[Rfam]
RNA sequence: ACUUUUCACAAUGAGGAUACAAAAGCUCCCUCUUCUGAUUUCAAAGUUGAGGAACUUUGCUGGCAGAAUCGAACCUUCAACUCUAUUGCCAAUCCUGAGUGA
Numbered sequence: 001a002c003u004u005u006u007c008a009c010a011a012u013g014a015g016g017a018u019a020c021a022a023a024a025g026c027u028c029c030c031u032c033u034u035c036u037g038a039u040u041u042c043a044a045a046g047u048u049g050a051g052g053a054a055c056u057u058u059g060c061u062g063g064c065a066g067a068a069u070c071g072a073a074c075c076u077u078c079a080a081c082u083c084u085a086u087u088g089c090c091a092a093u094c095c096u097g098a099g100u101g102a
Stems, first nucleotide, its partner, number of pairs: 006102004